[Rfam]
RNA sequence: CUCGCCCCUCGACCAGACACAACAUUCUGCAGCAAUGUUGUGCGACCUGCAGUGUCGGUCGAGCCCAGCGAG
Numbered sequence: 001c002u003c004g005c006c007c008c009u010c011g012a013c014c015a016g017a018c019a020c021a022a023c024a025u026u027c028u029g030c031a032g033c034a035a036u037g038u039u040g041u042g043c044g045a046c047c048u049g050c051a052g053u054g055u056c057g058g059u060c061g062a063g064c065c066c067a068g069c070g071a072g
Stems, first nucleotide, its partner, number of pairs: 001072005010061005021039006044056003
This 72-nucleotide sequence from Hortaea werneckii belongs to the Rfam family "bZIP non canonical Hac1/Xbp1 intron". From the family's description: bZIP intron RNA is a non-canonical intron that was first reported in HAC1 gene in yeast and XBP1 gene in Metazoa. On this family, see Hooks and Griffiths-Jones, RNA Biol 2011: "Conserved RNA structures in the non-canonical Hac1/Xbp1 intron". NCBI's taxonomy places the organism under Eukaryota, Dikarya, leotiomyceta, Dothideomycetes, Hortaea werneckii. The family's RNA type in Rfam is small RNA.